The record is a 120-nucleotide RNA from Clostridium homopropionicum, which matches "FMN riboswitch aptamer (RFN element)" in Rfam. Its family is annotated with FMN binding in the Gene Ontology.
[Rfam]
RNA sequence: GCAUAUCUUCAGGGCAGGGUGUGAUUCCCGAUCGGCGGUAUAGUCCGCGAGCUGUAGCAAUAUGGCUGACUUGGUGAAACUCCAAGACCGACAGUAAAGUCUGGAUGGAAGAAGGUAUAG
Numbered sequence: 001g002c003a004u005a006u007c008u009u010c011a012g013g014g015c016a017g018g019g020u021g022u023g024a025u026u027c028c029c030g031a032u033c034g035g036c037g038g039u040a041u042a043g044u045c046c047g048c049g050a051g052c053u054g055u056a057g058c059a060a061u062a063u064g065g066c067u068g069a070c071u072u073g074g075u076g077a078a079a080c081u082c083c084a085a086g087a088c089c090g091a092c093a094g095u096a097a098a099g100u101c102u103g104g105a106u107g108g109a110a111g112a113a114g115g116u117a118u119a120g
Base pairs, nucleotide, nucleotide: 003118004117005116006115007114008113009112010111017029018028019027031100032099033090034089035048036047037046038045043088044087051066052065053064070086071085072084073083074082092103093102094101
Dot-bracket structure: ..((((((((......(((.......))).[[((((((....[[))))..(((..........)))...(((((.......)))))]])).(((....]]))).......))))))))..